The record is a 148-nucleotide RNA, which matches "Streptomyces sRNA scr5239" in Rfam. Its family is annotated with mRNA binding and negative regulation of translation in the Gene Ontology. The base pairs follow the family's consensus structure, which is taken from published work. The literature on the family includes a 2012 paper in Microbiology by Vockenhuber and Suess, "Streptomyces coelicolor sRNA scr5239 inhibits agarase expression by direct base pairing to the dagA coding region". By type it is a small RNA.
[Rfam]
RNA sequence: CCUCCGUCCUUCCCGCACAGAAGGACGGACGGGGAACCGGGCUCUCUGCCCUGACUGCUCCGGCUCCCCUGCGGCCCGGACCGCACAUCCGUGGCCGAUGCAACUCCGGGCUGCGGUGCCGGGAGGGUUGAGGGUCCCUCCCAGGCGC
Numbered sequence: 001c002c003u004c005c006g007u008c009c010u011u012c013c014c015g016c017a018c019a020g021a022a023g024g025a026c027g028g029a030c031g032g033g034g035a036a037c038c039g040g041g042c043u044c045u046c047u048g049c050c051c052u053g054a055c056u057g058c059u060c061c062g063g064c065u066c067c068c069c070u071g072c073g074g075c076c077c078g079g080a081c082c083g084c085a086c087a088u089c090c091g092u093g094g095c096c097g098a099u100g101c102a103a104c105u106c107c108g109g110g111c112u113g114c115g116g117u118g119c120c121g122g123g124a125g126g127g128u129u130g131a132g133g134g135u136c137c138c139u140c141c142c143a144g145g146c147g148c
Base pairs, nucleotide, nucleotide: 003029004028005027006026008024009023010022011021012020031069032068033067034066035065037063038062039061040060041058042057043054044053072097073096074095075094076093078089079088103117104116105115107113108112121142122141123140124139125138126137127136